[Rfam]
RNA sequence: GGAAGCAGCUUCUAGGGUUCCGGUUCGCGUCAGUUCGCUUCAGCGAGCCCGAUGCGGCGUCUGGUCCGAGAGAAGCUCACCGGGGUCACCCGGUUGCACGGAGGGAUAAAAGCCCGGGAGAC
Numbered sequence: 001g002g003a004a005g006c007a008g009c010u011u012c013u014a015g016g017g018u019u020c021c022g023g024u025u026c027g028c029g030u031c032a033g034u035u036c037g038c039u040u041c042a043g044c045g046a047g048c049c050c051g052a053u054g055c056g057g058c059g060u061c062u063g064g065u066c067c068g069a070g071a072g073a074a075g076c077u078c079a080c081c082g083g084g085g086u087c088a089c090c091c092g093g094u095u096g097c098a099c100g101g102a103g104g105g106a107u108a109a110a111a112g113c114c115c116g117g118g119a120g121a122c
Stems, first nucleotide, its partner, number of pairs: 007077006015067002020064002022061001023058002026056006079094006097117001099120001103115003

Background:
This 122-nucleotide RNA sequence from Synechococcus sp. WH 5701 belongs to the Rfam family "Guanidine-I riboswitch aptamer". The sequence is in the family's curated seed alignment.